The family of this 91-nucleotide RNA from Rubidibacter lacunae is "Glutamine riboswitch aptamer (glnA leader)". The literature on the family includes a 2011 paper in RNA Biol by Ames and Breaker, "Bacterial aptamers that selectively bind glutamine".
[Rfam]
RNA sequence: AUCGUUCAUCUCCCGAGCAUUAGCCGAGGGACGGAAGUAGGAGCGCGAUCGCAGCCAGCAAUGGCUAAAAGCAGCUCUGAAGGAACGCGCC
Numbered sequence: 001a002u003c004g005u006u007c008a009u010c011u012c013c014c015g016a017g018c019a020u021u022a023g024c025c026g027a028g029g030g031a032c033g034g035a036a037g038u039a040g041g042a043g044c045g046c047g048a049u050c051g052c053a054g055c056c057a058g059c060a061a062u063g064g065c066u067a068a069a070a071g072c073a074g075c076u077c078u079g080a081a082g083g084a085a086c087g088c089g090c091c
Base pairs, nucleotide, nucleotide: 003087004086005085006084007083009031010030011029012028034088040078041077042076043075044074